[Rfam]
RNA sequence: ACCGCGUACUUACCUACUAUAUAGUGGCUGAAAUACAUGUAUUUCUCCUACUAUAUAGUGGGUAAGUGCACGGAUG
Numbered sequence: 001a002c003c004g005c006g007u008a009c010u011u012a013c014c015u016a017c018u019a020u021a022u023a024g025u026g027g028c029u030g031a032a033a034u035a036c037a038u039g040u041a042u043u044u045c046u047c048c049u050a051c052u053a054u055a056u057a058g059u060g061g062g063u064a065a066g067u068g069c070a071c072g073g074a075u076g
Base pairs, nucleotide, nucleotide: 002073003072004071006069007068008067009066010065011064012063013062014061015060017058018057019056020055021054022053023052024051025050026049027048030045031044033042034041035040
About this RNA: This 76-nucleotide RNA sequence from Ameiurus melas belongs to the Rfam family "mir-7563 microRNA precursor family". Gene Ontology terms of the family: RISC complex and miRNA-mediated post-transcriptional gene silencing. The organism belongs to Ameiurus, within Eukaryota.